[Rfam]
RNA: mir-71 microRNA precursor family
Organism: Ceutorhynchus assimilis
RNA sequence: GCUUUAUGAAAGAUAUGUGUAGUGAGAUGUUUUAUUUAAAUUUUGUCUCACUACCCUUGUCUUUCAUGUAGCG
Dot-bracket structure: .......((((((((.(.(.(((((((((..............))))))))).).).))))))))........